[Rfam]
RNA: RtT RNA
RNA sequence: CGCUUUUCCGACCGCGAGAAGAGCGGUUGGAGGUUCGAGCCGAGCGUAGCGAGACAACGUUGCCUUGGCAACGGCCCGCAGGGUGAGGCGUAAGCCGAAUCAUCCUCCUGGAUGCACCC
Numbered sequence: 001c002g003c004u005u006u007u008c009c010g011a012c013c014g015c016g017a018g019a020a021g022a023g024c025g026g027u028u029g030g031a032g033g034u035u036c037g038a039g040c041c042g043a044g045c046g047u048a049g050c051g052a053g054a055c056a057a058c059g060u061u062g063c064c065u066u067g068g069c070a071a072c073g074g075c076c077c078g079c080a081g082g083g084u085g086a087g088g089c090g091u092a093a094g095c096c097g098a099a100u101c102a103u104c105c106u107c108c109u110g111g112a113u114g115c116a117c118c119c
Stems, first nucleotide, its partner, number of pairs: 008110001010108001014104001024085002027083002034080001036078002041051002058073006
Dot-bracket structure: .......(.(...(.........((.((.....(.((...((.......))......((((((....))))))...)).).))))..................)...).).........